[Rfam]
RNA sequence: ACCUAAGGUAGAGGUGCUAUAAUGAUGAGUAUUUAUAAGGAGUCGGCAGAUAUUGAUUUAUAAAAAAAGGCAUUGUAGCCGAAGAAAUAAUUUUUAUGCGAAAAAUUAUUUUUGGGGGUGUAUAGAAUAUAUACAUAACUGUCACUAACGUGGAGAGCUACAAGGUGG
Dot-bracket structure: .......((((....(((((((((.......((((((((.................))))))))......)))))))))...((((((((((((.......))))))))))))((..(((((((.....)))))))..)).((((....))))....)))).......

Record summary
Rfam assigns this 168-nucleotide RNA from Clostridium taeniosporum to the family "Lysine riboswitch aptamer". The base pairs follow the family's consensus structure, which is taken from published work. Its family is annotated with lysine biosynthetic process in the Gene Ontology. NCBI's taxonomy places the organism under Bacteria, Bacillota, Clostridia, Clostridiaceae, Clostridium.